[Rfam]
RNA: Lysine riboswitch aptamer
RNA sequence: UAAAACAGUAGAGGCGCGGACUUUAUCAGUAUUUUUCCUGAUGUGUCAGGUACACAAGUGAUGGCUCAAAGAAAGGAAAGUCUGCCGAAGGGGGCAGUGACCUGAUGCUGCUAACCCUGGGCAUAUAUCAAACAGGUAUAUGACUGUCAUCUUUAUGAUGGAGUGCUACAAAGUAU
Numbered sequence: 001u002a003a004a005a006c007a008g009u010a011g012a013g014g015c016g017c018g019g020a021c022u023u024u025a026u027c028a029g030u031a032u033u034u035u036u037c038c039u040g041a042u043g044u045g046u047c048a049g050g051u052a053c054a055c056a057a058g059u060g061a062u063g064g065c066u067c068a069a070a071g072a073a074a075g076g077a078a079a080g081u082c083u084g085c086c087g088a089a090g091g092g093g094g095c096a097g098u099g100a101c102c103u104g105a106u107g108c109u110g111c112u113a114a115c116c117c118u119g120g121g122c123a124u125a126u127a128u129c130a131a132a133c134a135g136g137u138a139u140a141u142g143a144c145u146g147u148c149a150u151c152u153u154u155a156u157g158a159u160g161g162a163g164u165g166c167u168a169c170a171a172a173g174u175a176u
Stems, first nucleotide, its partner, number of pairs: 008169004016085009032070003037064002089118004093112006119145002122142008147161005